[Rfam]
RNA sequence: AAAUGUCUUCAGGGCAGGGUGAAAAUCCCGAUCGGCGGUAUAGUCCGCGACCUGUGUUUCUGCACAGUUGAUCCGGUGGAACUCCGGGACCGACAGUGACGCGCUUUGAAUCGGCGGCGCGAAGUCUGGAUGGAAGAAGAUGUGU
Numbered sequence: 001a002a003a004u005g006u007c008u009u010c011a012g013g014g015c016a017g018g019g020u021g022a023a024a025a026u027c028c029c030g031a032u033c034g035g036c037g038g039u040a041u042a043g044u045c046c047g048c049g050a051c052c053u054g055u056g057u058u059u060c061u062g063c064a065c066a067g068u069u070g071a072u073c074c075g076g077u078g079g080a081a082c083u084c085c086g087g088g089a090c091c092g093a094c095a096g097u098g099a100c101g102c103g104c105u106u107u108g109a110a111u112c113g114g115c116g117g118c119g120c121g122a123a124g125u126c127u128g129g130a131u132g133g134a135a136g137a138a139g140a141u142g143u144g145u
Stems, first nucleotide, its partner, number of pairs: 003143008017029003033092002035048004043090002052067002072088005094128003

FMN riboswitch aptamer (RFN element): a 145-nucleotide RNA sequence from Intestinimonas butyriciproducens. The match comes from Rfam's covariance-model search (98 bits). The source organism's lineage runs through Bacteria, Bacillati, Bacillota, Eubacteriales and Intestinimonas.